[Rfam]
RNA sequence: GUCCCAUCCAGAGUGGCUGAGAGACUUGGCUCGUUGACGCCGCAGCAACCCGUGGUCCACGGUCCGUGCCCGGGUGCUAAUGCCAAGACCGAUGGAAG
Numbered sequence: 001g002u003c004c005c006a007u008c009c010a011g012a013g014u015g016g017c018u019g020a021g022a023g024a025c026u027u028g029g030c031u032c033g034u035u036g037a038c039g040c041c042g043c044a045g046c047a048a049c050c051c052g053u054g055g056u057c058c059a060c061g062g063u064c065c066g067u068g069c070c071c072g073g074g075u076g077c078u079a080a081u082g083c084c085a086a087g088a089c090c091g092a093u094g095g096a097a098g
Stems, first nucleotide, its partner, number of pairs: 002097001004095005013043005021032003026086004044078004049074004054069001082090001
Shown here is a 98-nucleotide RNA, a member of the family "SAM riboswitch aptamer (S box leader)". It scores 55 bits against the family's covariance model.